Notes
A member of the RNA family "tRNA" from Paraglaciecola mesophila, 74 nucleotides long. Pairs were carried over by alignment from the consensus structure, which is taken from published work. Its Rfam clan is "tRNA clan".
RNA sequence: AGGGGUGUAGUUCCAAUUGGUAGAACAGCGGUCUCCAAAACCGAUGGCUGGGGGUUCGAAUCCCUCCACCCCUG
Numbered sequence: 001a002g003g004g005g006u007g008u009a010g011u012u013c014c015a016a017u018u019g020g021u022a023g024a025a026c027a028g029c030g031g032u033c034u035c036c037a038a039a040a041c042c043g044a045u046g047g048c049u050g051g052g053g054g055u056u057c058g059a060a061u062c063c064c065u066c067c068a069c070c071c072c073u074g
Stems, first nucleotide, its partner, number of pairs: 001073007010026004029043004050066005